RNA sequence: AUGGACCUAUGACCUAUGAUUUGACAGCCAGUGGAUGUAGAGUCUGCCUGUCAUUCCGUAGGCCACAGGUUCGU
Numbered sequence: 001a002u003g004g005a006c007c008u009a010u011g012a013c014c015u016a017u018g019a020u021u022u023g024a025c026a027g028c029c030a031g032u033g034g035a036u037g038u039a040g041a042g043u044c045u046g047c048c049u050g051u052c053a054u055u056c057c058g059u060a061g062g063c064c065a066c067a068g069g070u071u072c073g074u
Stems, first nucleotide, its partner, number of pairs: 001074008010065002013062004018056002022053006029046003
Dot-bracket structure: ((((((((.((.((((.((..((((((.(((............))).)))))).))..)))).)).))))))))
The record is a 74-nucleotide RNA sequence from Hymenochirus boettgeri, which matches "mir-192/215 microRNA precursor family" in Rfam.
Rfam links the family to the GO terms miRNA-mediated post-transcriptional gene silencing and RISC complex.
For this family Rfam cites "New microRNAs from mouse and human" (Lagos-Quintana et al., RNA, 2003).
The base pairs follow the family's consensus structure, which was predicted with PFOLD.
The family has 48 seed sequences and 810 matches in Rfam 15.1.
This family represents the human microRNA (miRNA) precursors mir-192 and mir-215. Animal miRNAs are transcribed as ~70nt precursors and subsequently processed by the Dicer enzyme to give a ~22nt product. In this case the mature sequence comes from the 5' arm of the precursor.